[Rfam]
RNA sequence: AGUUGUUGAGGGCAAACCAGUCGAAAGACUGGGACGCAAAGCCUCCGGCCUAAAGCGCGCAAGCGCAACGGCAGCGGGGUUGCCAAU
Numbered sequence: 001a002g003u004u005g006u007u008g009a010g011g012g013c014a015a016a017c018c019a020g021u022c023g024a025a026a027g028a029c030u031g032g033g034a035c036g037c038a039a040a041g042c043c044u045c046c047g048g049c050c051u052a053a054a055g056c057g058c059g060c061a062a063g064c065g066c067a068a069c070g071g072c073a074g075c076g077g078g079g080u081u082g083c084c085a086a087u
Stems, first nucleotide, its partner, number of pairs: 012037002017032006040081004045077003048072003055066004
Shown here is an 87-nucleotide RNA sequence from Rhodoferax lacus, a member of the family "c-di-GMP-I riboswitch aptamer". On this family, see Weinberg et al., Nucleic Acids Res 2007: "Identification of 22 candidate structured RNAs in bacteria using the CMfinder comparative genomics pipeline". The source organism's lineage runs through Bacteria, Pseudomonadati, Burkholderiales, Comamonadaceae and Rhodoferax. The base pairs follow the family's consensus structure, which is taken from published work.